[Rfam]
The family of this 87-nucleotide RNA from Neomoorella thermoacetica is "c-di-GMP-I riboswitch aptamer".
RNA sequence: UCCCCGAAAGGGCAAACCUGCUGAAAGGCAGGGGCGCAAAACUAGAGGGUCUACAGCCUUCACGGGCCAUGACAGCCAGUUACCACG
Numbered sequence: 001u002c003c004c005c006g007a008a009a010g011g012g013c014a015a016a017c018c019u020g021c022u023g024a025a026a027g028g029c030a031g032g033g034g035c036g037c038a039a040a041a042c043u044a045g046a047g048g049g050u051c052u053a054c055a056g057c058c059u060u061c062a063c064g065g066g067c068c069a070u071g072a073c074a075g076c077c078a079g080u081u082a083c084c085a086c087g
Base pairs, nucleotide, nucleotide: 012037013036017032018031019030020029021028022027040081041080042079043078047077048076049073050072051071056067057066058065059064

The source organism's lineage runs through Bacteria, Bacillota, Clostridia, Neomoorellaceae and Neomoorella. The match comes from Rfam's covariance-model search (75 bits).